Mammalian CPEB3 ribozyme: a 74-nucleotide sequence from Strongylocentrotus purpuratus.
The match comes from Rfam's covariance-model search (68 bits).
Pairs were carried over by alignment from the consensus structure, which is taken from published work.
Lineage of the source: Eukaryota > Opisthokonta > Euechinoidea > Strongylocentrotidae > Strongylocentrotus.
From the family's description: The mammalian CPEB3 ribozyme is a self cleaving RNA located in the second intron of the CPEB3 gene which belongs to a family of genes regulating messenger RNA polyadenylation.
[Rfam]
RNA sequence: UGGGGAUGGGUGGGGGCAAUUGAAGAAGCGUUCACGUCGCGGUCCUUGUCAGAUGAAAAUCUGCGAAUCCUUCA
Numbered sequence: 001u002g003g004g005g006a007u008g009g010g011u012g013g014g015g016g017c018a019a020u021u022g023a024a025g026a027a028g029c030g031u032u033c034a035c036g037u038c039g040c041g042g043u044c045c046u047u048g049u050c051a052g053a054u055g056a057a058a059a060u061c062u063g064c065g066a067a068u069c070c071u072u073c074a
Stems, first nucleotide, its partner, number of pairs: 013046005021074005027068001028040003050063005